[Rfam]
RNA sequence: UGCGUAUUUCGCGGCGGAGGAGCUCGACCGCCCGUUCAAGCCAUGAUCGCCUUCAUCGAGAAACACCGGGCUGUCUUUGGUGUCGGGCCGAUCUGCCGGGUUCUGGGGAACGCACCA
Numbered sequence: 001u002g003c004g005u006a007u008u009u010c011g012c013g014g015c016g017g018a019g020g021a022g023c024u025c026g027a028c029c030g031c032c033c034g035u036u037c038a039a040g041c042c043a044u045g046a047u048c049g050c051c052u053u054c055a056u057c058g059a060g061a062a063a064c065a066c067c068g069g070g071c072u073g074u075c076u077u078u079g080g081u082g083u084c085g086g087g088c089c090g091a092u093c094u095g096c097c098g099g100g101u102u103c104u105g106g107g108g109a110a111c112g113c114a115c116c117a
Stems, first nucleotide, its partner, number of pairs: 016032002019029002078117005089112002092109003096105001098103001